mir-46/mir-47/mir-281 microRNA precursor family: an 82-nucleotide RNA sequence from Onchocerca volvulus. The source organism's lineage runs through Eukaryota, Opisthokonta, Protostomia, Spiruromorpha and Onchocerca. The base pairs follow the family's consensus structure, which was predicted with RNAalifold.

RNA sequence: GAACGCAGACGACUAAGAGAGCCAUCUAUUGACAGUAAUAAAUUGUAACUGUCAUGGAGUUGCUCUCUUUAUAUGCCUGUGU
Numbered sequence: 001g002a003a004c005g006c007a008g009a010c011g012a013c014u015a016a017g018a019g020a021g022c023c024a025u026c027u028a029u030u031g032a033c034a035g036u037a038a039u040a041a042a043u044u045g046u047a048a049c050u051g052u053c054a055u056g057g058a059g060u061u062g063c064u065c066u067c068u069u070u071a072u073a074u075g076c077c078u079g080u081g082u
Base pairs, nucleotide, nucleotide: 015069016068017067018066020064021063022062025058026057027056028055031053032052033051035049036048